Rfam assigns this 151-nucleotide RNA from Actinospica durhamensis to the family "c-di-AMP riboswitch aptamer (ydaO/yuaA leader)". Pairs were carried over by alignment from the consensus structure. The source organism's lineage runs through Bacteria, Actinomycetes, Catenulisporales, Actinospicaceae and Actinospica.
[Rfam]
RNA sequence: CGGAUGCGACCGCCGAGUCCACACACGUGGAGCCGGGGACCCACUUCGGUAGUUCCCCGCCGCGGGGUGAAUCGCUCCGGCCCCGGAGCGUAGGGCGUCUCUUUCCGCCCGAACCCGUCAGCUAACCCGGUAGGCGGACGAGGGAGAGGGC
Numbered sequence: 001c002g003g004a005u006g007c008g009a010c011c012g013c014c015g016a017g018u019c020c021a022c023a024c025a026c027g028u029g030g031a032g033c034c035g036g037g038g039a040c041c042c043a044c045u046u047c048g049g050u051a052g053u054u055c056c057c058c059g060c061c062g063c064g065g066g067g068u069g070a071a072u073c074g075c076u077c078c079g080g081c082c083c084c085g086g087a088g089c090g091u092a093g094g095g096c097g098u099c100u101c102u103u104u105c106c107g108c109c110c111g112a113a114c115c116c117g118u119c120a121g122c123u124a125a126c127c128c129g130g131u132a133g134g135c136g137g138a139c140g141a142g143g144g145a146g147a148g149g150g151c
Stems, first nucleotide, its partner, number of pairs: 011136004018031003032131006042064001065116003073090004093110004